[Rfam]
RNA: Small nucleolar RNA snoR53Y
Organism: Glycine max
RNA sequence: GUUCCCAAUGAUGUUUUUGCUCUUUUACCAUGCUAAUUCUGAUUACAUAUGAUUAAUGCUUUUAGAUUGUUAUACUGAGGGAGCU
Numbered sequence: 001g002u003u004c005c006c007a008a009u010g011a012u013g014u015u016u017u018u019g020c021u022c023u024u025u026u027a028c029c030a031u032g033c034u035a036a037u038u039c040u041g042a043u044u045a046c047a048u049a050u051g052a053u054u055a056a057u058g059c060u061u062u063u064a065g066a067u068u069g070u071u072a073u074a075c076u077g078a079g080g081g082a083g084c085u
Stems, first nucleotide, its partner, number of pairs: 001084005